[Rfam]
RNA sequence: GGAGCGGCUUCUGGAGAGACUGUACCUAGUACAGCGCCGAAGGAUUCACAAUCUCAGGCAAAAGAACAGAAGAGUAACG
Number, nucleotide and partner (000 for none) at each position: 001g000002g000003a000004g000005c000006g000007g000008c072009u071010u070011c069012u068013g067014g000015a000016g000017a000018g000019a000020c034021u033022g032023u031024a000025c000026c000027u000028a000029g000030u000031a023032c022033a021034g020035c000036g059037c058038c057039g055040a054041a000042g000043g053044a052045u051046u000047c000048a000049c000050a000051a045052u044053c043054u040055c039056a000057g038058g037059c036060a000061a000062a000063a000064g000065a000066a000067c013068a012069g011070a010071a009072g008073a000074g000075u000076a000077a000078c000079g000
Glycine riboswitch aptamer: a 79-nucleotide sequence from Schinkia azotoformans. The match comes from Rfam's covariance-model search (50 bits). Pairs were carried over by alignment from the consensus structure.